[Rfam]
RNA: Purine riboswitch aptamer
RNA sequence: AUAAAUGUAAUUACUAGCGUUUAUAUAAACCAGCAUAUUGGGUUGGUGUUUCUACGAUAGACCUAUCUAUCACUAUAAGUUAGUAUUUAAACUUU
Numbered sequence: 001a002u003a004a005a006u007g008u009a010a011u012u013a014c015u016a017g018c019g020u021u022u023a024u025a026u027a028a029a030c031c032a033g034c035a036u037a038u039u040g041g042g043u044u045g046g047u048g049u050u051u052c053u054a055c056g057a058u059a060g061a062c063c064u065a066u067c068u069a070u071c072a073c074u075a076u077a078a079g080u081u082a083g084u085a086u087u088u089a090a091a092c093u094u095u
Stems, first nucleotide, its partner, number of pairs: 019080007029047006056071006